[Rfam]
RNA sequence: UCGCGUUAAGGAUAGUAGUGGAAAUCCUUUUUAUGUCAGUUCGAGUGAAUUUGCUUUGCAAAUUUGUAUCGAGAACACAUAAAAAGAUUGAAACGGAUAGCCUGUUUAAAC
Numbered sequence: 001u002c003g004c005g006u007u008a009a010g011g012a013u014a015g016u017a018g019u020g021g022a023a024a025u026c027c028u029u030u031u032u033a034u035g036u037c038a039g040u041u042c043g044a045g046u047g048a049a050u051u052u053g054c055u056u057u058g059c060a061a062a063u064u065u066g067u068a069u070c071g072a073g074a075a076c077a078c079a080u081a082a083a084a085a086g087a088u089u090g091a092a093a094c095g096g097a098u099a100g101c102c103u104g105u106u107u108a109a110a111c
Stems, first nucleotide, its partner, number of pairs: 009103003013099002018094002023089004029084008
A member of the RNA family "Flavo-1 RNA", 111 nucleotides long. The base pairs follow the family's consensus structure, which is taken from published work. It is annotated as a small RNA.